[Rfam]
RNA sequence: GCUUCCCCUCUCUAAUCCUUGCUGUCUGGGUGCUAAUGCUGUGUCGAUGCAAUGCACCUGGGCAAGGAUUCAGAGAGGGGGCGC
Numbered sequence: 001g002c003u004u005c006c007c008c009u010c011u012c013u014a015a016u017c018c019u020u021g022c023u024g025u026c027u028g029g030g031u032g033c034u035a036a037u038g039c040u041g042u043g044u045c046g047a048u049g050c051a052a053u054g055c056a057c058c059u060g061g062g063c064a065a066g067g068a069u070u071c072a073g074a075g076a077g078g079g080g081g082c083g084c
Base pairs, nucleotide, nucleotide: 014070015069016068017067018066019065020064025062026061027060028059029058030057031056032055037051038050039049
The record is an 84-nucleotide sequence from Microcebus murinus, which matches "mir-500 microRNA precursor family" in Rfam. The source organism's lineage runs through Eukaryota, Opisthokonta, Theria, Primates and Microcebus. A search with the family's covariance model found it, with a score of 94 bits. Rfam links the family to the GO terms RISC complex and miRNA-mediated post-transcriptional gene silencing. A reference for the family is Linsen et al. (2010), "Small RNA expression and strain specificity in the rat", BMC Genomics.